[Rfam]
RNA sequence: GAUGGCAAAUGAUGGACAAAUCGUAAUCUUAUCCUACACUCCUAAGAUUAUUUUGAGGACACAAAACUCCGCUUAUUAUCUGAUGCCAUC
Numbered sequence: 001g002a003u004g005g006c007a008a009a010u011g012a013u014g015g016a017c018a019a020a021u022c023g024u025a026a027u028c029u030u031a032u033c034c035u036a037c038a039c040u041c042c043u044a045a046g047a048u049u050a051u052u053u054u055g056a057g058g059a060c061a062c063a064a065a066a067c068u069c070c071g072c073u074u075a076u077u078a079u080c081u082g083a084u085g086c087c088a089u090c
Base pairs, nucleotide, nucleotide: 003088004087005086006085007084

Notes:
Shown here is a 90-nucleotide RNA sequence from Colocasia esculenta, a member of the family "Small nucleolar RNA R16". NCBI's taxonomy places the organism under Eukaryota, Euphyllophyta, Spermatophyta, Aroideae, Colocasia. Rfam classes the family as a C/D-box small nucleolar RNA. It scores 69 bits against the family's covariance model.